[Rfam]
RNA sequence: GGCUUCCUACCCCCGAACGAAACAAAACCGGACAGGGGCGGGGGAACCACCACCGGGCGCCCCGACGCCCUAGGGGUGAAGCCGACUCACCGAGCCGGCCGGGCUCACCGAGUCCGAACCCGACAGCUCACUUCGCAGGCGCGGCAGGAGAGAGGGA
Numbered sequence: 001g002g003c004u005u006c007c008u009a010c011c012c013c014c015g016a017a018c019g020a021a022a023c024a025a026a027a028c029c030g031g032a033c034a035g036g037g038g039c040g041g042g043g044g045a046a047c048c049a050c051c052a053c054c055g056g057g058c059g060c061c062c063c064g065a066c067g068c069c070c071u072a073g074g075g076g077u078g079a080a081g082c083c084g085a086c087u088c089a090c091c092g093a094g095c096c097g098g099c100c101g102g103g104c105u106c107a108c109c110g111a112g113u114c115c116g117a118a119c120c121c122g123a124c125a126g127c128u129c130a131c132u133u134c135g136c137a138g139g140c141g142c143g144g145c146a147g148g149a150g151a152g153a154g155g156g157a
Base pairs, nucleotide, nucleotide: 004141006139007138011037012036013035038136039135040134041133042132043131048073074121075120076119082098083097084096101115102114103113104112
The record is a 157-nucleotide sequence from Halosaccharopolyspora lacisalsi, which matches "c-di-AMP riboswitch aptamer (ydaO/yuaA leader)" in Rfam.
The pairing is the family consensus, mapped onto this sequence.
The source organism's lineage runs through Bacteria, Bacillati, Actinomycetota, Pseudonocardiaceae and Halosaccharopolyspora.
It scores 44 bits against the family's covariance model.